[Rfam]
RNA sequence: UAAUGGUGCAGGUAGAGAUACGCUGUAUACUCACGUCACCGAAUGAAAGUUUAAGCGAUAUGCAAUAUCGUCGGCCGUGAGGACGCCUUCGGGCGUCUUUUUUUUAC
Numbered sequence: 001u002a003a004u005g006g007u008g009c010a011g012g013u014a015g016a017g018a019u020a021c022g023c024u025g026u027a028u029a030c031u032c033a034c035g036u037c038a039c040c041g042a043a044u045g046a047a048a049g050u051u052u053a054a055g056c057g058a059u060a061u062g063c064a065a066u067a068u069c070g071u072c073g074g075c076c077g078u079g080a081g082g083a084c085g086c087c088u089u090c091g092g093g094c095g096u097c098u099u100u101u102u103u104u105u106a107c
Base pairs, nucleotide, nucleotide: 007027008026009025010024011023012021013020014019030081031080032079033078034077035076039074040073041072042051043050044049055071056070057069058068059067060066082097083096084095085094086093087092
Dot-bracket structure: ......((((((((....))).)))))..((((((...((((((....)))...((((((.....))))))))).))))))((((((....))))))..........
Overview:
DUF3800-I RNA: a 107-nucleotide RNA. Actinobacteria, Firmicutes, Fusobacteria, Proteobacteria (1 example), Tenericutes (2 examples). The base pairs follow the family's consensus structure, which is taken from published work.